[Rfam]
RNA: tRNA
Organism: Trichobilharzia regenti
RNA sequence: GCCUCCAUAGCUCAGUGGUCAGAGCACUGGACUUAUGAACCAGGGGUGGGGAGUUUGAUCCCCCCUGGGGGUA
Dot-bracket structure: (((((((..((((........)))).((((.........)))).....(((.(.......).)))))))))).